[Rfam]
RNA: Small nucleolar RNA SNORD103/SNORD85
RNA sequence: CAUGGCAUUGAUAGACAACUUGCCCUCACUGAGAAGAAGGUUCUGUGAUGAGAAGCUUUGUUAUUCGAAAUCAAGAGUCAUG
Numbered sequence: 001c002a003u004g005g006c007a008u009u010g011a012u013a014g015a016c017a018a019c020u021u022g023c024c025c026u027c028a029c030u031g032a033g034a035a036g037a038a039g040g041u042u043c044u045g046u047g048a049u050g051a052g053a054a055g056c057u058u059u060g061u062u063a064u065u066c067g068a069a070a071u072c073a074a075g076a077g078u079c080a081u082g
Stems, first nucleotide, its partner, number of pairs: 001082006